[Rfam]
Nucleotides: 109
Base pairs, nucleotide, nucleotide: 001109002108003107004106005105006104007103008102013042014041015040016039017038021031022030023029025083026082027081028080043077044076045075046074048073049072050069051068052067053066084098085097086096087095088094
Number, partner (000 for none) and nucleotide at each position: 001109g002108a003107u004106u005105u006104a007103u008102a009000c010000a011000g012000a013042a014041a015040g016039g017038g018000g019000g020000a021031g022030a023029g024000a025083c026082a027081g028080g029023c030022u031021c032000g033000a034000c035000g036000a037000a038017c039016c040015c041014u042013u043077a044076g045075c046074a047000a048073c049072u050069u051068u052067c053066c054000g055000a056000a057000c058000g059000a060000u061000c062000c063000g064000u065000a066053g067052g068051a069050a070000u071000a072049a073048g074046u075045g076044c077043u078000a079000a080028c081027c082026u083025g084098c085097c086096u087095a088094a089000a090000a091000a092000a093000a094088u095087u096086a097085g098084g099000a100000a101000c102008u103007a104006u105005a106004a107003a108002u109001u
Shown here is a 109-nucleotide sequence from Larkinella knui, a member of the family "SAM riboswitch aptamer (S box leader)".
It scores 74 bits against the family's covariance model.
The organism belongs to Larkinella, within Bacteria.